[Rfam]
RNA: MIR812 microRNA precursor family
Organism: Oryza brachyantha
Nucleotides: 145
Base pairs, nucleotide, nucleotide: 001145002144003143005141006140007139008138009137010136011135012134013133014132016130017129019127020126021125022124
Number, partner (000 for none) and nucleotide at each position: 001145a002144a003143u004000u005141u006140u007139u008138g009137a010136u011135u012134a013133u014132u015000c016130g017129u018000c019127u020126u021125a022124u023000u024000u025000a026000a027000a028000a029000u030000u031000u032000u033000u034000u035000a036000a037000g038000a039000c040000u041000a042000a043000u044000a045000u046000u047000u048000u049000u050000a051000u052000u053000g054000u055000u056000a057000u058000c059000a060000c061000a062000u063000g064000a065000u066000a067000a068000a069000a070000c071000a072000u073000a074000a075000c076000u077000a078000g079000u080000a081000c082000u083000u084000u085000a086000u087000g088000u089000g090000u091000g092000a093000c094000u095000a096000u097000u098000u099000u100000u101000u102000u103000a104000a105000c106000u107000u108000u109000u110000u111000u112000a113000u114000a115000a116000a117000u118000u119000u120000u121000u122000a123000a124022a125021u126020a127019a128000a129017a130016c131000a132014g133013a134012u135011g136010g137009u138008c139007a140006a141005a142000c143003g144002u145001u